RNA sequence: ACCUUAUCAAGAGAGGCUGAGGGAUAGGCCCUGUGAAGCCCAGCAACCACCCAAAUGGGAAAAGGUGCUAAUUCCUACAAGACAAAAGUCUUGAAAGAUGAGGU
Numbered sequence: 001a002c003c004u005u006a007u008c009a010a011g012a013g014a015g016g017c018u019g020a021g022g023g024a025u026a027g028g029c030c031c032u033g034u035g036a037a038g039c040c041c042a043g044c045a046a047c048c049a050c051c052c053a054a055a056u057g058g059g060a061a062a063a064g065g066u067g068c069u070a071a072u073u074c075c076u077a078c079a080a081g082a083c084a085a086a087a088g089u090c091u092u093g094a095a096a097g098a099u100g101a102g103g104u
Base pairs, nucleotide, nucleotide: 001104002103003102004101005100006099007098008097013041015040016039017038021031022030023029025077026076027075028074042069043068044067045066047065048064051059052058073096078093079092080091081090082089
Dot-bracket structure: ((((((((....(.(((...(((.[[[[)))......))))((((.((..((.....))....))))))...(]]]](((((......)))))..)))))))))
Annotation: Rfam assigns this 104-nucleotide RNA sequence from Clostridioides difficile to the family "SAM riboswitch aptamer (S box leader)".